Annotation
Rfam assigns this 141-nucleotide RNA from Protea cynaroides to the family "MIR168 microRNA precursor family". The organism belongs to Protea, within Eukaryota. It scores 88 bits against the family's covariance model. For this family Rfam cites "MicroRNAs in plants" (Reinhart et al., Genes Dev, 2002).
RNA sequence: GUUACUGCUGUCUCUAAUUCGCUUGGUACAGGUCGGGAAUGCUUCACCUCUUGUGGAUUCAGUAUGUUCUAGUGGUUUUUGUUUGAUUUACAGCGAAUCAAAUCCCACCUUGCAUCAAGUGAAUCGGAAACGGCAGUGAAA
Number, nucleotide and partner (000 for none) at each position: 001g000002u000003u000004a000005c000006u000007g000008c000009u000010g000011u000012c000013u128014c127015u000016a000017a124018u123019u122020c121021g000022c000023u118024u117025g116026g115027u114028a000029c112030a111031g110032g109033u000034c000035g106036g105037g104038a103039a000040u101041g000042c000043u000044u000045c000046a000047c000048c000049u000050c000051u000052u000053g000054u000055g000056g000057a000058u000059u000060c000061a000062g000063u000064a000065u000066g000067u000068u000069c000070u000071a000072g000073u000074g000075g000076u000077u000078u000079u000080u000081g000082u000083u000084u000085g000086a000087u000088u000089u000090a000091c000092a000093g000094c000095g000096a000097a000098u000099c000100a000101a040102a000103u038104c037105c036106c035107a000108c000109c032110u031111u030112g029113c000114a027115u026116c025117a024118a023119g000120u000121g020122a019123a018124u017125c000126g000127g014128a013129a000130a000131c000132g000133g000134c000135a000136g000137u000138g000139a000140a000141a000